[Rfam]
RNA sequence: CGUUGCCCUUGCAUCGUGGCCCUUGCCCGAACCGGCCCUGGCGUACUUCCCCGACGCCAGGUCCGCGCUCUCGGACAGGGACCUCGGUGCAGGGACCUUCACCG
Numbered sequence: 001c002g003u004u005g006c007c008c009u010u011g012c013a014u015c016g017u018g019g020c021c022c023u024u025g026c027c028c029g030a031a032c033c034g035g036c037c038c039u040g041g042c043g044u045a046c047u048u049c050c051c052c053g054a055c056g057c058c059a060g061g062u063c064c065g066c067g068c069u070c071u072c073g074g075a076c077a078g079g080g081a082c083c084u085c086g087g088u089g090c091a092g093g094g095a096c097c098u099u100c101a102c103c104g
Stems, first nucleotide, its partner, number of pairs: 010091007018083002021080005027074004032067001033065003037061008
RNA: mraW RNA
Organism: Mycolicibacterium rhodesiae